RNA sequence: UUAUAUAGACGUAUGUAAUUGUGGGGUUUUAAGCUUUACGGGAAACCCAACCGAAAAUUUCUUAAAUAAAAAACUUUCGGUUAGAUUUCCCGUAAAACUUAAAACCCCGCAAUUACAUACACCUAUAUAA
Number, nucleotide and partner (000 for none) at each position: 001u130002u129003a128004u127005a126006u125007a124008g123009a000010c000011g120012u119013a118014u117015g116016u115017a114018a113019u112020u111021g110022u109023g108024g107025g106026g000027u104028u103029u102030u101031a100032a099033g098034c000035u096036u095037u094038a093039c092040g091041g090042g000043a000044a000045a000046c000047c000048c000049a000050a000051c000052c000053g000054a000055a000056a000057a000058u000059u000060u000061c000062u000063u000064a000065a000066a000067u000068a000069a000070a000071a088072a087073a086074c000075u084076u083077u000078c000079g000080g000081u000082u000083a076084g075085a000086u073087u072088u071089c000090c041091c040092g039093u038094a037095a036096a035097a000098c033099u032100u031101a030102a029103a028104a027105c000106c025107c024108c023109g022110c021111a020112a019113u018114u017115a016116c015117a014118u013119a012120c011121a000122c000123c008124u007125a006126u005127a004128u003129a002130a001
MIR9555 microRNA precursor family: a 130-nucleotide sequence from Brassica oleracea. It scores 124 bits against the family's covariance model. Rfam links the family to the GO terms RISC complex and miRNA-mediated post-transcriptional gene silencing. The organism belongs to Brassica oleracea, within Eukaryota.